The record is a 103-nucleotide RNA sequence from Fictibacillus arsenicus, which matches "Purine riboswitch aptamer" in Rfam. From the family's description: Riboswitches are metabolite binding domains within certain messenger RNAs that serve as precision sensors for their corresponding targets. Rfam links the family to the GO term purine nucleobase biosynthetic process. NCBI's taxonomy places the organism under Bacteria, Bacillota, Caryophanales, Fictibacillaceae, Fictibacillus.

[Rfam]
RNA sequence: UUUUUGUUAACUUCAUAAGCUCGUAUAAUCGCAGGGAUAUGGCCUGCAAGUUUCUACCAAACCCCCGUAAAUGGGUUUGACUACGAGUGACGCAAACAUUUCC
Numbered sequence: 001u002u003u004u005u006g007u008u009a010a011c012u013u014c015a016u017a018a019g020c021u022c023g024u025a026u027a028a029u030c031g032c033a034g035g036g037a038u039a040u041g042g043c044c045u046g047c048a049a050g051u052u053u054c055u056a057c058c059a060a061a062c063c064c065c066c067g068u069a070a071a072u073g074g075g076u077u078u079g080a081c082u083a084c085g086a087g088u089g090a091c092g093c094a095a096a097c098a099u100u101u102c103c
Stems, first nucleotide, its partner, number of pairs: 019088007029049001031047005058079007